[Rfam]
Nucleotides: 355
Base pairs, nucleotide, nucleotide: 001355002354003353004352007349008348009347012310013309014308015307017304020061021060022059023058024057034048035047036046037045038044070339071338072337073336074335080283081282082281083280090104091103092102093101094100105121106120107119108118109117110116122279123278124277125276126275128273143264144263145262146261147260148259149258150257151256311327312326313325314324315323316322317321
Number, partner (000 for none) and nucleotide at each position: 001355u002354c003353c004352g005000g006000g007349g008348g009347a010000a011000g012310c013309u014308c015307a016000c017304u018000g019000c020061c021060g022059a023058g024057g025000c026000c027000a028000c029000g030000c031000a032000c033000u034048g035047g036046g037045u038044g039000c040000g041000c042000g043000u044038c045037a046036c047035c048034c049000a050000c051000g052000c053000u054000c055000c056000g057024c058023c059022u060021c061020g062000g063000g064000g065000a066000a067000g068000g069000u070339c071338u072337g073336a074335g075000g076000g077000a078000a079000g080283g081282g082281c083280c084000g085000c086000c087000c088000g089000c090104g091103g092102c093101u094100c095000c096000a097000g098000c099000a100094g101093a102092g103091c104090c105121c106120c107119g108118c109117c110116c111000g112000c113000g114000a115000g116110g117109g118108g119107c120106g121105g122279g123278u124277g125276a126275g127000c128273c129000a130000c131000c132000a133000g134000c135000a136000a137000g138000g139000g140000g141000g142000g143264g144263g145262c146261g147260c148259c149258g150257c151256g152000u153000a154000c155000u156000c157000g158000g159000g160000c161000c162000g163000g164000c165000c166000u167000g168000g169000g170000c171000a172000g173000g174000a175000g176000a177000a178000g179000c180000c181000g182000a183000g184000c185000a186000g187000g188000u189000u190000c191000a192000c193000g194000g195000g196000g197000g198000u199000g200000g201000g202000g203000g204000g205000g206000u207000u208000g209000a210000c211000c212000c213000c214000c215000c216000c217000c218000c219000a220000u221000c222000c223000c224000g225000g226000c227000g228000a229000g230000c231000g232000a233000a234000c235000c236000c237000c238000g239000g240000u241000g242000g243000a244000u245000g246000c247000u248000c249000g250000u251000g252000g253000c254000c255000c256151c257150g258149c259148g260147g261146u262145g263144c264143u265000u266000u267000g268000a269000g270000a271000c272000a273128g274000a275126c276125u277124c278123a279122c280083g281082g282081c283080c284000g285000g286000c287000g288000a289000u290000c291000g292000u293000u294000g295000a296000g297000u298000c299000c300000a301000a302000u303000g304017g305000u306000g307015u308014g309013a310012g311327g312326u313325g314324g315323g316322g317321c318000a319000g320000c321317g322316c323315c324314c325313u326312a327311c328000a329000a330000c331000c332000c333000a334000a335074u336073u337072c338071a339070g340000a341000c342000u343000a344000c345000u346000c347009u348008c349007c350000c351000c352004c353003g354002g355001a
Background
Shown here is a 355-nucleotide sequence from Eudyptes chrysocome, a member of the family "Nuclear RNase P". Lineage of the source: Eukaryota > Vertebrata > Dipnotetrapodomorpha > Tetrapoda > Eudyptes. A search with the family's covariance model found it, with a score of 150 bits. The family's RNA type in Rfam is ribozyme.